[Rfam]
RNA sequence: GGAAUAUCAAAAACUGUCUAUUAACUCUUAGUUAAAAAUGCUAAGAACCGAUUCUUAAAUAAGAUAUUUAAAAGUCGGUUUUUAGCAUUUUUAGUUAAAAGUAAAGAGACAGUUUCUUAUAUUCU
Numbered sequence: 001g002g003a004a005u006a007u008c009a010a011a012a013a014c015u016g017u018c019u020a021u022u023a024a025c026u027c028u029u030a031g032u033u034a035a036a037a038a039u040g041c042u043a044a045g046a047a048c049c050g051a052u053u054c055u056u057a058a059a060u061a062a063g064a065u066a067u068u069u070a071a072a073a074g075u076c077g078g079u080u081u082u083u084a085g086c087a088u089u090u091u092u093a094g095u096u097a098a099a100a101g102u103a104a105a106g107a108g109a110c111a112g113u114u115u116c117u118u119a120u121a122u123u124c125u
Base pairs, nucleotide, nucleotide: 001125002124003123004122005121006120007119009117011115012114013113014112015111016110017109018108019107021105022104024102025101026100028098029097030096031095032094033093034092035091036090037089038088039087041085042084043083044082045081046080047079
Dot-bracket structure: (((((((.(.(((((((((.((.(((.((((((((((((.(((((((...............................))))))).)))))))))))).))).)).))))))))).).)))))))
The record is a 125-nucleotide RNA from Brassica oleracea, which matches "MIR9563 microRNA precursor family" in Rfam. Taxonomically the source falls in Brassica oleracea (Eukaryota, Embryophyta, Mesangiospermae, malvids). The family has 2 seed sequences and 5,832 matches in Rfam 15.1.